RNA sequence: AUCCUGCCGCCGCCCGGCUUCACCCGAGAGAACUUCGUACGGCAGGAGCGGGGGACCCAGGUAAGUCGCCGGGCCGGGCGUCUGCGGACGUGCCGGAACGGCUCGGGGUGAAGUCGCGCGCCUUCAGGGGCGUGCGGCCGGGCAGCUCCCGCCCGAACCCGACAGCUCACCUCGCAGGCGCCGGAGAGGAACUUC
Numbered sequence: 001a002u003c004c005u006g007c008c009g010c011c012g013c014c015c016g017g018c019u020u021c022a023c024c025c026g027a028g029a030g031a032a033c034u035u036c037g038u039a040c041g042g043c044a045g046g047a048g049c050g051g052g053g054g055a056c057c058c059a060g061g062u063a064a065g066u067c068g069c070c071g072g073g074c075c076g077g078g079c080g081u082c083u084g085c086g087g088a089c090g091u092g093c094c095g096g097a098a099c100g101g102c103u104c105g106g107g108g109u110g111a112a113g114u115c116g117c118g119c120g121c122c123u124u125c126a127g128g129g130g131c132g133u134g135c136g137g138c139c140g141g142g143c144a145g146c147u148c149c150c151g152c153c154c155g156a157a158c159c160c161g162a163c164a165g166c167u168c169a170c171c172u173c174g175c176a177g178g179c180g181c182c183g184g185a186g187a188g189g190a191a192c193u194u195c
Stems, first nucleotide, its partner, number of pairs: 002047008048175006058105001106160003114137008140154004
A member of the RNA family "c-di-AMP riboswitch aptamer (ydaO/yuaA leader)" from Streptomyces sp. DI166, 195 nucleotides long. Taxonomically the source falls in Streptomyces (Bacteria, Actinomycetes, Kitasatosporales, Streptomycetaceae). It scores 41 bits against the family's covariance model.